[Rfam]
Overview:
The record is a 179-nucleotide sequence from Lentibacillus salicampi, which matches "Lysine riboswitch aptamer" in Rfam.
RNA sequence: AAGCGAGGUAGAGGAGCGAAAGCCAUCAGUACGCAAUCAGAGGAUGAUGAGGUCCGGUGACGAUUGUGGAAAGGGGAAUUCGCCGAAACAUCGAGAACUUAUAUUCUCGGGUGUUGGUUCUGUUAUUGAAGAAAGGCAGGACUGUCAUAUAGGGAACUAUAUGGAGGGCUAUCUUGCGC
Numbered sequence: 001a002a003g004c005g006a007g008g009u010a011g012a013g014g015a016g017c018g019a020a021a022g023c024c025a026u027c028a029g030u031a032c033g034c035a036a037u038c039a040g041a042g043g044a045u046g047a048u049g050a051g052g053u054c055c056g057g058u059g060a061c062g063a064u065u066g067u068g069g070a071a072a073g074g075g076g077a078a079u080u081c082g083c084c085g086a087a088a089c090a091u092c093g094a095g096a097a098c099u100u101a102u103a104u105u106c107u108c109g110g111g112u113g114u115u116g117g118u119u120c121u122g123u124u125a126u127u128g129a130a131g132a133a134a135g136g137c138a139g140g141a142c143u144g145u146c147a148u149a150u151a152g153g154g155a156a157c158u159a160u161a162u163g164g165a166g167g168g169c170u171a172u173c174u175u176g177c178g179c
Base pairs, nucleotide, nucleotide: 006174007173008172009171010170011169016083017082018081019080020079023076024075032068033067034066035065036064037063038062087115088114089113090112091111092109093108094107095106096105097104116143117142118141119140120139121138122137123136124135126133145164146163147162148161149160150159151158
Gene Ontology term of the family: lysine biosynthetic process.
Pairs were carried over by alignment from the consensus structure, which is taken from published work.
The match comes from Rfam's covariance-model search (123 bits).
The organism belongs to Lentibacillus, within Bacteria.